About this RNA: Shown here is a 98-nucleotide RNA, a member of the family "Aggregatibacter sRNA 22". For this family Rfam cites "Small RNA repertoires and their intraspecies variation in Aggregatibacter actinomycetemcomitans" (Oogai et al., DNA Res, 2017).

[Rfam]
RNA sequence: GUGCGGUGACAAAAUCGAAGAUUUUUGAAGGUCGGCUUGGCCGACGGCCCCGAAAGGGUGGGAAAUCGUUUUGCGAUUUCGCAUAAAAUUUUCAUUAU
Numbered sequence: 001g002u003g004c005g006g007u008g009a010c011a012a013a014a015u016c017g018a019a020g021a022u023u024u025u026u027g028a029a030g031g032u033c034g035g036c037u038u039g040g041c042c043g044a045c046g047g048c049c050c051c052g053a054a055a056g057g058g059u060g061g062g063a064a065a066u067c068g069u070u071u072u073g074c075g076a077u078u079u080c081g082c083a084u085a086a087a088a089u090u091u092u093c094a095u096u097a098u
Base pairs, nucleotide, nucleotide: 010027011026012025013024014022015021016020031045032044033043034042035041036040047059048058049057050056062080063079064078065077066076067075068074069073083095084094086092